[Rfam]
RNA sequence: GGACGGUGACGAUUAUUGUGAUAAGGUCUCGUUCGUCGUAAUGGGUUCAUAGCCCUUGCCGACCAUUCUGAUAUAUCACCACCCAUAUUCUGAGUCC
Numbered sequence: 001g002g003a004c005g006g007u008g009a010c011g012a013u014u015a016u017u018g019u020g021a022u023a024a025g026g027u028c029u030c031g032u033u034c035g036u037c038g039u040a041a042u043g044g045g046u047u048c049a050u051a052g053c054c055c056u057u058g059c060c061g062a063c064c065a066u067u068c069u070g071a072u073a074u075a076u077c078a079c080c081a082c083c084c085a086u087a088u089u090c091u092g093a094g095u096c097c
Stems, first nucleotide, its partner, number of pairs: 001097004048052001
Dot-bracket structure: ((((...........................................(...).........................................))))
Small nucleolar RNA Z43: a 97-nucleotide RNA sequence from Morus notabilis. It is annotated as a C/D-box small nucleolar RNA. Lineage of the source: Eukaryota > Spermatophyta > Pentapetalae > fabids > Morus. The family's consensus secondary structure was predicted with PFOLD. The literature on the family includes a 2003 paper in Nucleic Acids Res by Chen et al., "The high diversity of snoRNAs in plants: identification and comparative study of 120 snoRNA genes from Oryza sativa". The match comes from Rfam's covariance-model search (96 bits).